[Rfam]
RNA sequence: UGGAGCGGGUGCAUGGUCGCUCCGGCCUCGUGCCGGAGAGGAAAGUCCGAACUCCGCAGGGCAGGAUGGUUCGUAACACGAACGCCGGGCGACCGGGGGAAAGUGCCACAGAAAACAAACCGCCCGGUCGGAUGACCGGGUAAGGGUGAAAUGGCGAGGUAAGAGCUCACCGCCUCGAUGGCGACACCGAGGGCAGGGCAAACCCCAUCCGGAGCAAGACCAAAUAGGGGGAUGUUUGAGGGCGGCCCGUCCGAUAUCUCCGGGUAGGUUGCAAGAGAUGCCGAGCGAUCGGCAUCCCAGUGAAAUGAUCAUGGCCCUUCACCGGGUACAGAAUUCGGCUUACAGCCCGCUCCGUUUU
Numbered sequence: 001u002g003g004a005g006c007g008g009g010u011g012c013a014u015g016g017u018c019g020c021u022c023c024g025g026c027c028u029c030g031u032g033c034c035g036g037a038g039a040g041g042a043a044a045g046u047c048c049g050a051a052c053u054c055c056g057c058a059g060g061g062c063a064g065g066a067u068g069g070u071u072c073g074u075a076a077c078a079c080g081a082a083c084g085c086c087g088g089g090c091g092a093c094c095g096g097g098g099g100a101a102a103g104u105g106c107c108a109c110a111g112a113a114a115a116c117a118a119a120c121c122g123c124c125c126g127g128u129c130g131g132a133u134g135a136c137c138g139g140g141u142a143a144g145g146g147u148g149a150a151a152u153g154g155c156g157a158g159g160u161a162a163g164a165g166c167u168c169a170c171c172g173c174c175u176c177g178a179u180g181g182c183g184a185c186a187c188c189g190a191g192g193g194c195a196g197g198g199c200a201a202a203c204c205c206c207a208u209c210c211g212g213a214g215c216a217a218g219a220c221c222a223a224a225u226a227g228g229g230g231g232a233u234g235u236u237u238g239a240g241g242g243c244g245g246c247c248c249g250u251c252c253g254a255u256a257u258c259u260c261c262g263g264g265u266a267g268g269u270u271g272c273a274a275g276a277g278a279u280g281c282c283g284a285g286c287g288a289u290c291g292g293c294a295u296c297c298c299a300g301u302g303a304a305a306u307g308a309u310c311a312u313g314g315c316c317c318u319u320c321a322c323c324g325g326g327u328a329c330a331g332a333a334u335u336c337g338g339c340u341u342a343c344a345g346c347c348c349g350c351u352c353c354g355u356u357u358u
Stems, first nucleotide, its partner, number of pairs: 001354010011343001012313007020038007043341003047338005052214004059248004064210005069083005085096004098205002103203002105199003120145002122141008153171002156168003172194001173192005179186002218270004228261006240252004277296008
RNA: Bacterial RNase P class A